[Rfam]
RNA sequence: GAUGUUAAAGGCAAACCCAUAGAAAUGUGGGGACGCAAAACCAUGGGCCUAAAAGGGUGCAUCCGAUGUUCUCCCCUGAUGGUUGCCAGGCUGCCGUCC
Numbered sequence: 001g002a003u004g005u006u007a008a009a010g011g012c013a014a015a016c017c018c019a020u021a022g023a024a025a026u027g028u029g030g031g032g033a034c035g036c037a038a039a040a041c042c043a044u045g046g047g048c049c050u051a052a053a054a055g056g057g058u059g060c061a062u063c064c065g066a067u068g069u070u071c072u073c074c075c076c077u078g079a080u081g082g083u084u085g086c087c088a089g090g091c092u093g094c095c096g097u098c099c
Stems, first nucleotide, its partner, number of pairs: 001099001003096002011036002016031006034085001039092001041090002044088003047083003
c-di-GMP-I-GGC riboswitch aptamer: a 99-nucleotide sequence from a Chthonomonadaceae bacterium. The source organism's lineage runs through Bacteria, Bacillati, Chthonomonadia, Chthonomonadales and Chthonomonadaceae. For this family Rfam cites "Recognition of the bacterial second messenger cyclic diguanylate by its cognate riboswitch" (Kulshina et al., Nat Struct Mol Biol, 2009).